[Rfam]
RNA sequence: AAACAGAAAAGGCACACCUACUGAAAAAUAGGGUCGCAAAGCUAGAGGGGCUACAACGCAUUGUUAUGCGUCAUGCCAGCCAGUUGCCGAA
Numbered sequence: 001a002a003a004c005a006g007a008a009a010a011g012g013c014a015c016a017c018c019u020a021c022u023g024a025a026a027a028a029u030a031g032g033g034u035c036g037c038a039a040a041g042c043u044a045g046a047g048g049g050g051c052u053a054c055a056a057c058g059c060a061u062u063g064u065u066a067u068g069c070g071u072c073a074u075g076c077c078a079g080c081c082a083g084u085u086g087c088c089g090a091a
Base pairs, nucleotide, nucleotide: 012037013036017032018031019030020029022027040085041084042083043082047081048080049077050076051075056071057070058069059068060067061066
RNA: c-di-GMP-I riboswitch aptamer
Organism: Cohnella luojiensis